[Rfam]
RNA sequence: GGAACCUGCCUUUCAGGCAUCCUCUCCUAAAACUUUAUGCCGCCCUUCGGGGCGGCUUUUUUUUGGUCAUC
Numbered sequence: 001g002g003a004a005c006c007u008g009c010c011u012u013u014c015a016g017g018c019a020u021c022c023u024c025u026c027c028u029a030a031a032a033c034u035u036u037a038u039g040c041c042g043c044c045c046u047u048c049g050g051g052g053c054g055g056c057u058u059u060u061u062u063u064u065g066g067u068c069a070u071c
Stems, first nucleotide, its partner, number of pairs: 008018004039056007
RNA: Makes More Granules Regulator RNA (mmgR)